[Rfam]
RNA sequence: CACGUUACACACUAAAUCAUAGCCAAUGAGGUUUAUCCGAGGCAUGAUUAUUGCUAAUUGAAAAACUAACUUGAUAAACUUAGAACAAAUCACUUCUCUUUAUUUAUAAA
Numbered sequence: 001c002a003c004g005u006u007a008c009a010c011a012c013u014a015a016a017u018c019a020u021a022g023c024c025a026a027u028g029a030g031g032u033u034u035a036u037c038c039g040a041g042g043c044a045u046g047a048u049u050a051u052u053g054c055u056a057a058u059u060g061a062a063a064a065a066c067u068a069a070c071u072u073g074a075u076a077a078a079c080u081u082a083g084a085a086c087a088a089a090u091c092a093c094u095u096c097u098c099u100u101u102a103u104u105u106a107u108a109a110a
Base pairs, nucleotide, nucleotide: 016048017047018046019045020044022043023042024041030038031037080109081108082107083105084104085103087101088100089099092097
About this RNA
Rfam assigns this 110-nucleotide RNA sequence from Tupaia belangeri to the family "U4 spliceosomal RNA". NCBI's taxonomy places the organism under Eukaryota, Vertebrata, Teleostomi, Tupaiidae, Tupaia belangeri. Rfam links the family to the GO terms U4 snRNP and spliceosomal tri-snRNP complex assembly. Pairs were carried over by alignment from the consensus structure, which is taken from published work. For this family Rfam cites "The uRNA database" (Zwieb, Nucleic Acids Res, 1997).